[Rfam]
RNA: RNase MRP
Organism: Trichoderma asperellum
RNA sequence: CCUUUGCUCAACAAAUCGCCAUUCGAAGCUUACAAACGGAGAUUCUGCUCUGCAGCAUCUCUCCAAACACAGCUUUGGGAGAAAGUCCCCGGACGUCUCCUUUUUGGAGCAUGCGGAAACGCGCCGCCAUAGAAGCACUGCGGCUGACCUCCGCGCCUUGGCCCGGCUGCGGCAUCUGCCCUGCCUGCUGCUAAAUCCGUUUCUCACGAAGCACUGUCAACCCCUGAUCUUGCGUCUCUGGCCCCUAUGGAUGAAGAUAUGAGUCCGCGCUGGAAGGCAGUGGGAUUGGGGCGGCGAUGCUGAAUGGAGGUGGAUGGCAGGUGGACGUUUGUGAUGUCUGCUAGCUGUGGUAUCGGGUGCAGAGGACUUGUUGUCGAGGUCGAUAGUUAUGCGAUUGCCUGGCGCAAGCUUGGUUACUCGAUGGGGCCCAUUCUUGAUGCGAAG
Numbered sequence: 001c002c003u004u005u006g007c008u009c010a011a012c013a014a015a016u017c018g019c020c021a022u023u024c025g026a027a028g029c030u031u032a033c034a035a036a037c038g039g040a041g042a043u044u045c046u047g048c049u050c051u052g053c054a055g056c057a058u059c060u061c062u063c064c065a066a067a068c069a070c071a072g073c074u075u076u077g078g079g080a081g082a083a084a085g086u087c088c089c090c091g092g093a094c095g096u097c098u099c100c101u102u103u104u105u106g107g108a109g110c111a112u113g114c115g116g117a118a119a120c121g122c123g124c125c126g127c128c129a130u131a132g133a134a135g136c137a138c139u140g141c142g143g144c145u146g147a148c149c150u151c152c153g154c155g156c157c158u159u160g161g162c163c164c165g166g167c168u169g170c171g172g173c174a175u176c177u178g179c180c181c182u183g184c185c186u187g188c189u190g191c192u193a194a195a196u197c198c199g200u201u202u203c204u205c206a207c208g209a210a211g212c213a214c215u216g217u218c219a220a221c222c223c224c225u226g227a228u229c230u231u232g233c234g235u236c237u238c239u240g241g242c243c244c245c246u247a248u249g250g251a252u253g254a255a256g257a258u259a260u261g262a263g264u265c266c267g268c269g270c271u272g273g274a275a276g277g278c279a280g281u282g283g284g285a286u287u288g289g290g291g292c293g294g295c296g297a298u299g300c301u302g303a304a305u306g307g308a309g310g311u312g313g314a315u316g317g318c319a320g321g322u323g324g325a326c327g328u329u330u331g332u333g334a335u336g337u338c339u340g341c342u343a344g345c346u347g348u349g350g351u352a353u354c355g356g357g358u359g360c361a362g363a364g365g366a367c368u369u370g371u372u373g374u375c376g377a378g379g380u381c382g383a384u385a386g387u388u389a390u391g392c393g394a395u396u397g398c399c400u401g402g403c404g405c406a407a408g409c410u411u412g413g414u415u416a417c418u419c420g421a422u423g424g425g426g427c428c429c430a431u432u433c434u435u436g437a438u439g440c441g442a443a444g
Stems, first nucleotide, its partner, number of pairs: 002444006008437004014396006023079001024077006039061005045055004085427001087426004112123004151166003155162002331368001337364001339362001342359001398413002401410003